[Rfam]
RNA sequence: AACCCCAUGAAAACAUUGAUUUUUCGCUUUUUCUUUUACUUUAGUGCCUGAUAUACGGGGCUUAUCUGCGUAAGAGAAAAAACGAAAAGUUACGCUAAAGCCUCCUGAUGGAGGCUUUUUUGUU
Numbered sequence: 001a002a003c004c005c006c007a008u009g010a011a012a013a014c015a016u017u018g019a020u021u022u023u024u025c026g027c028u029u030u031u032u033c034u035u036u037u038a039c040u041u042u043a044g045u046g047c048c049u050g051a052u053a054u055a056c057g058g059g060g061c062u063u064a065u066c067u068g069c070g071u072a073a074g075a076g077a078a079a080a081a082a083c084g085a086a087a088a089g090u091u092a093c094g095c096u097a098a099a100g101c102c103u104c105c106u107g108a109u110g111g112a113g114g115c116u117u118u119u120u121u122g123u124u
Stems, first nucleotide, its partner, number of pairs: 017092003021088006028081007036073004044054001057067003097118009
Notes
This 124-nucleotide RNA sequence from Moellerella wisconsensis belongs to the Rfam family "Phenylalanine leader peptide". It is annotated as a cis-regulatory leader. The literature on the family includes a 1978 paper in Proc Natl Acad Sci U S A by Zurawski et al., "Nucleotide sequence of the leader region of the phenylalanine operon of Escherichia coli". A search with the family's covariance model found it, with a score of 74 bits. NCBI's taxonomy places the organism under Bacteria, Pseudomonadota, Gammaproteobacteria, Moellerella, Moellerella wisconsensis.